This 78-nucleotide RNA sequence from Candidula unifasciata belongs to the Rfam family "Small nucleolar RNA SNORD24". The base pairs follow the family's consensus structure, which was predicted with PFOLD. By type it is a C/D-box small nucleolar RNA. The family has 14 seed sequences and 2,843 matches in Rfam 15.1. Taxonomically the source falls in Candidula (Eukaryota, Metazoa, Euthyneura, Helicoidea).

[Rfam]
RNA sequence: UGUCAAUGAUGUACCAUAUUUGCUACUCUUGAUUCAAGAUGAUGAGUAUCUUACCACCAAACAUUGGCACCUGAGACA
Numbered sequence: 001u002g003u004c005a006a007u008g009a010u011g012u013a014c015c016a017u018a019u020u021u022g023c024u025a026c027u028c029u030u031g032a033u034u035c036a037a038g039a040u041g042a043u044g045a046g047u048a049u050c051u052u053a054c055c056a057c058c059a060a061a062c063a064u065u066g067g068c069a070c071c072u073g074a075g076a077c078a
Stems, first nucleotide, its partner, number of pairs: 001078004